[Rfam]
RNA: SAM riboswitch aptamer (S box leader)
RNA sequence: GAUUUAUAAAGAAGAGGCGAGAGACAGGCUCUAAGACCCUCUGGCAACCUUCCAAAGUGGAAAGGUGCCAAAUCCUGCCGGGUGAGAUGGUCUCACUUGGAACUAUAAAUU
Numbered sequence: 001g002a003u004u005u006a007u008a009a010a011g012a013a014g015a016g017g018c019g020a021g022a023g024a025c026a027g028g029c030u031c032u033a034a035g036a037c038c039c040u041c042u043g044g045c046a047a048c049c050u051u052c053c054a055a056a057g058u059g060g061a062a063a064g065g066u067g068c069c070a071a072a073u074c075c076u077g078c079c080g081g082g083u084g085a086g087a088u089g090g091u092c093u094c095a096c097u098u099g100g101a102a103c104u105a106u107a108a109a110u111u
Stems, first nucleotide, its partner, number of pairs: 001111008013042005021031003025077004043069004048065002050062004078100009